[Rfam]
RNA sequence: GACCAAAGUAGAGGUGCCGUAAUUAAGAGUAGUCAUAAGUAGCUGACAAGUGUUUUAUGUAUGAUGAAAGGGAUUAUGGCCGAAGAGAUAUUAAUGGUGAUUAAUAUUUCUGGGUAUAUGUAUAAUAUGCAUAUAACUGUCACUUUGAAAAAAGUGGAGUGCUACAAGGUAC
Numbered sequence: 001g002a003c004c005a006a007a008g009u010a011g012a013g014g015u016g017c018c019g020u021a022a023u024u025a026a027g028a029g030u031a032g033u034c035a036u037a038a039g040u041a042g043c044u045g046a047c048a049a050g051u052g053u054u055u056u057a058u059g060u061a062u063g064a065u066g067a068a069a070g071g072g073a074u075u076a077u078g079g080c081c082g083a084a085g086a087g088a089u090a091u092u093a094a095u096g097g098u099g100a101u102u103a104a105u106a107u108u109u110c111u112g113g114g115u116a117u118a119u120g121u122a123u124a125a126u127a128u129g130c131a132u133a134u135a136a137c138u139g140u141c142a143c144u145u146u147g148a149a150a151a152a153a154g155u156g157g158a159g160u161g162c163u164a165c166a167a168g169g170u171a172c
Stems, first nucleotide, its partner, number of pairs: 008165004016080009032065006039058001084111012112138002115135008140157007

A member of the RNA family "Lysine riboswitch aptamer" from Clostridium perfringens, 172 nucleotides long. NCBI's taxonomy places the organism under Bacteria, Clostridia, Eubacteriales, Clostridiaceae, Clostridium perfringens.